RNA: Small nucleolar RNA SNORA63
RNA sequence: GAGCAGGAUCAAUGUACAAUGUAGCUGUAAAGUGCUACAUUGUUUUACUCCCUGCUCAAAAGAAAAGUGUUACCUUCCGAGCCCUGCCUGCUAUGGUACCCAGGCAGCAGGGAUGCUUGGUUUCAUACAG
Numbered sequence: 001g002a003g004c005a006g007g008a009u010c011a012a013u014g015u016a017c018a019a020u021g022u023a024g025c026u027g028u029a030a031a032g033u034g035c036u037a038c039a040u041u042g043u044u045u046u047a048c049u050c051c052c053u054g055c056u057c058a059a060a061a062g063a064a065a066a067g068u069g070u071u072a073c074c075u076u077c078c079g080a081g082c083c084c085u086g087c088c089u090g091c092u093a094u095g096g097u098a099c100c101c102a103g104g105c106a107g108c109a110g111g112g113a114u115g116c117u118u119g120g121u122u123u124c125a126u127a128c129a130g
Stems, first nucleotide, its partner, number of pairs: 003055005016043010083111004088107004